RNA sequence: CCUGUGGAUCGUUAUAUAAACGAAAGUAGUUCUAAACGAAGAUAUUUGAGUCUCAAAUAUUAACGUUUUUAACAAAAUCGGACGGGAUGAAGCAGGAA
Numbered sequence: 001c002c003u004g005u006g007g008a009u010c011g012u013u014a015u016a017u018a019a020a021c022g023a024a025a026g027u028a029g030u031u032c033u034a035a036a037c038g039a040a041g042a043u044a045u046u047u048g049a050g051u052c053u054c055a056a057a058u059a060u061u062a063a064c065g066u067u068u069u070u071a072a073c074a075a076a077a078u079c080g081g082a083c084g085g086g087a088u089g090a091a092g093c094a095g096g097a098a
Base pairs, nucleotide, nucleotide: 001096002095003094004093005092009085010084011083012082013081021080022079023078029073030072031071034068035067036066037065038064